[Rfam]
The family of this 64-nucleotide RNA from Rhinopomastus cyanomelas is "Selenocysteine insertion sequence 1".
RNA sequence: GUUGUUAUAUGAAGACAAAAACCGCAAGUCAGAAAUCUGAUCGGUUUUUGUCUGAUGCCAUAAC
Numbered sequence: 001g002u003u004g005u006u007a008u009a010u011g012a013a014g015a016c017a018a019a020a021a022c023c024g025c026a027a028g029u030c031a032g033a034a035a036u037c038u039g040a041u042c043g044g045u046u047u048u049u050g051u052c053u054g055a056u057g058c059c060a061u062a063a064c
Stems, first nucleotide, its partner, number of pairs: 001064005014052010029040003
Pairs were carried over by alignment from the consensus structure, which is taken from published work.
Rfam classes the family as a cis-regulatory element.
Rfam describes the family as follows. The incorporation of selenocysteine into a protein sequence is directed by an in-frame UGA codon (usually a stop codon) within the coding region of the mRNA. Selenoprotein mRNAs contain a conserved secondary structure in the 3' UTR that is required for the distinction of UGA stop from UGA selenocysteine.
The literature on the family includes a 1996 paper in RNA by Walczak et al., "A novel RNA structural motif in the selenocysteine insertion element of eukaryotic selenoprotein mRNAs".
Rfam links the family to the GO term selenocysteine incorporation.